RNA sequence: CUUCUGUCUCGGUCAAGGGUUCCCAAGCCCAUGGAACAGGUAUCUCGGUUAAUGGUCAUCACACGGCCUCGUGCAAUGUGUUUGUCCUUAGCCUCAGAUCUCCAGCUUGGCUGAAGAAGAAGCGUCAGGGAAACACGUAGGCUAUUUGGCACCUACGGCACAUUAACUGAC
Numbered sequence: 001c002u003u004c005u006g007u008c009u010c011g012g013u014c015a016a017g018g019g020u021u022c023c024c025a026a027g028c029c030c031a032u033g034g035a036a037c038a039g040g041u042a043u044c045u046c047g048g049u050u051a052a053u054g055g056u057c058a059u060c061a062c063a064c065g066g067c068c069u070c071g072u073g074c075a076a077u078g079u080g081u082u083u084g085u086c087c088u089u090a091g092c093c094u095c096a097g098a099u100c101u102c103c104a105g106c107u108u109g110g111c112u113g114a115a116g117a118a119g120a121a122g123c124g125u126c127a128g129g130g131a132a133a134c135a136c137g138u139a140g141g142c143u144a145u146u147u148g149g150c151a152c153c154u155a156c157g158g159c160a161c162a163u164u165a166a167c168u169g170a171c
Stems, first nucleotide, its partner, number of pairs: 001122004009114007039103002124171005136157006
RNA: Hairpin ribozyme 1 from viruses-like metatranscriptomes